[Rfam]
RNA sequence: GCGGAUGUAGCGCAGUUGGUAGCGCAUCACCUUGCCAAGGUGAGGGUCGCGAGUUCGAGUCUCGUCAUCCGCU
Numbered sequence: 001g002c003g004g005a006u007g008u009a010g011c012g013c014a015g016u017u018g019g020u021a022g023c024g025c026a027u028c029a030c031c032u033u034g035c036c037a038a039g040g041u042g043a044g045g046g047u048c049g050c051g052a053g054u055u056c057g058a059g060u061c062u063c064g065u066c067a068u069c070c071g072c073u
Stems, first nucleotide, its partner, number of pairs: 001072007010025004027043005049065005
The record is a 73-nucleotide sequence from Corynebacterium matruchotii, which matches "tRNA" in Rfam. The family's RNA type in Rfam is transfer RNA. Lineage of the source: Bacteria > Actinomycetota > Actinomycetes > Mycobacteriales > Corynebacterium matruchotii.